[Rfam]
RNA sequence: GUUCCGGCAAGUCCGCUGCAGACAACCUGCAGGCUGCCUAAUACCGCAUUUCCGUCUUGUGACCACGGAUGUACUGGCACGAGAUGUUGAGAUGAUUAAGAAGGCCGGGCGGCAACGCCCGGCCUUUUUGUUU
Numbered sequence: 001g002u003u004c005c006g007g008c009a010a011g012u013c014c015g016c017u018g019c020a021g022a023c024a025a026c027c028u029g030c031a032g033g034c035u036g037c038c039u040a041a042u043a044c045c046g047c048a049u050u051u052c053c054g055u056c057u058u059g060u061g062a063c064c065a066c067g068g069a070u071g072u073a074c075u076g077g078c079a080c081g082a083g084a085u086g087u088u089g090a091g092a093u094g095a096u097u098a099a100g101a102a103g104g105c106c107g108g109g110c111g112g113c114a115a116c117g118c119c120c121g122g123c124c125u126u127u128u129u130g131u132u133u
Base pairs, nucleotide, nucleotide: 002040013036015034016033017032047094048093049092050091051090054085055084056083057082060079061078063077064076065075095132097130098129099128100127101126102125103124104123105122106121107120108119109118110117111116

The family of this 133-nucleotide RNA sequence from Roseibium limicola is "Alphaproteobacterial sRNA ar35". A reference for the family is del Val et al. (2012), "A survey of sRNA families in alpha-proteobacteria", RNA Biol. Lineage of the source: Bacteria > Pseudomonadati > Pseudomonadota > Hyphomicrobiales > Roseibium.